The family of this 83-nucleotide RNA sequence from Dioscorea zingiberensis is "MIR319 microRNA precursor family". Pairs were carried over by alignment from the consensus structure, which was predicted with RNAalifold. Rfam links the family to the GO terms miRNA-mediated post-transcriptional gene silencing and RISC complex.
[Rfam]
RNA sequence: CAGAAAUGGGAGUUUCCUUCAGUUCAAAGCAUUUGAUCUUUUGUUUCUCUGCUGUUUUGGACUGAAGGGAGCUCCUAAUUCUC
Numbered sequence: 001c002a003g004a005a006a007u008g009g010g011a012g013u014u015u016c017c018u019u020c021a022g023u024u025c026a027a028a029g030c031a032u033u034u035g036a037u038c039u040u041u042u043g044u045u046u047c048u049c050u051g052c053u054g055u056u057u058u059g060g061a062c063u064g065a066a067g068g069g070a071g072c073u074c075c076u077a078a079u080u081c082u083c
Stems, first nucleotide, its partner, number of pairs: 007077012021063002024060005